[Rfam]
RNA: permuted transfer-messenger RNA
Organism: Polymorphum gilvum
RNA sequence: GGCGAUAAAUGGUCAGUGGAAUAAGCCUUUCGGACCCGGGGGCGGUACCCGGCGCCUCCACCCAAGCCCAUGAAAAACUCUUUGAUUUCAUGGGCUUUGGCGGGGGCGAAACAGGAUCGACGAGGGUGUAAAGACUGCGCUUUCGCUCGGCAUGGUACCACCGAUAUCGGGCCAUCCUUAUAGUUGCCAACGACAACUAUGCUUCGGACGUCGCUCUCGCCGCGUAA
Numbered sequence: 001g002g003c004g005a006u007a008a009a010u011g012g013u014c015a016g017u018g019g020a021a022u023a024a025g026c027c028u029u030u031c032g033g034a035c036c037c038g039g040g041g042g043c044g045g046u047a048c049c050c051g052g053c054g055c056c057u058c059c060a061c062c063c064a065a066g067c068c069c070a071u072g073a074a075a076a077a078c079u080c081u082u083u084g085a086u087u088u089c090a091u092g093g094g095c096u097u098u099g100g101c102g103g104g105g106g107c108g109a110a111a112c113a114g115g116a117u118c119g120a121c122g123a124g125g126g127u128g129u130a131a132a133g134a135c136u137g138c139g140c141u142u143u144c145g146c147u148c149g150g151c152a153u154g155g156u157a158c159c160a161c162c163g164a165u166a167u168c169g170g171g172c173c174a175u176c177c178u179u180a181u182a183g184u185u186g187c188c189a190a191c192g193a194c195a196a197c198u199a200u201g202c203u204u205c206g207g208a209c210g211u212c213g214c215u216c217u218c219g220c221c222g223c224g225u226a227a
Stems, first nucleotide, its partner, number of pairs: 001147005014137004026126003030123003036052005053108007148163003